RNA sequence: AGCCUGUGAUGGUCUAAGAGUAGUGGACAGAAUGGAUUUCUGAGAAAACUGUUCUGAGGCU
Number, nucleotide and partner (000 for none) at each position: 001a061002g060003c059004c058005u000006g000007u000008g000009a000010u000011g000012g000013u000014c000015u000016a000017a000018g000019a000020g000021u000022a000023g000024u000025g000026g000027a000028c000029a000030g000031a000032a000033u000034g000035g000036a000037u000038u000039u000040c000041u000042g000043a000044g000045a000046a000047a000048a000049c000050u000051g000052u000053u000054c000055u000056g000057a000058g004059g003060c002061u001
RNA: Small nucleolar RNA SNORD75
Organism: Jaculus jaculus